[Rfam]
RNA sequence: UUUGGGGGAAGUAGUGGUCCGUCGGGUUGGGAAAAGGGCAUCAUUCCUUGAGGGAAAAUUAGGUUUGCUUCCUUUUACUUCCAAAAUAUUUUUACCGUGGGUAAAUAGAAUCAUCAUGGGGGUAUAAAAAGGAACCAAACUUAAAUUUACCUCAAGGGAUCUUGAUGUCUUUUUCUCCAACAGGACAUAUCACAAGUUAGA
Numbered sequence: 001u002u003u004g005g006g007g008g009a010a011g012u013a014g015u016g017g018u019c020c021g022u023c024g025g026g027u028u029g030g031g032a033a034a035a036g037g038g039c040a041u042c043a044u045u046c047c048u049u050g051a052g053g054g055a056a057a058a059u060u061a062g063g064u065u066u067g068c069u070u071c072c073u074u075u076u077a078c079u080u081c082c083a084a085a086a087u088a089u090u091u092u093u094a095c096c097g098u099g100g101g102u103a104a105a106u107a108g109a110a111u112c113a114u115c116a117u118g119g120g121g122g123u124a125u126a127a128a129a130a131g132g133a134a135c136c137a138a139a140c141u142u143a144a145a146u147u148u149a150c151c152u153c154a155a156g157g158g159a160u161c162u163u164g165a166u167g168u169c170u171u172u173u174u175c176u177c178c179a180a181c182a183g184g185a186c187a188u189a190u191c192a193c194a195a196g197u198u199a200g201a
Stems, first nucleotide, its partner, number of pairs: 009198002012195001014193005021186003026181005031175005040166004044159003048155005055148003059144009069134007076124008089107001091105006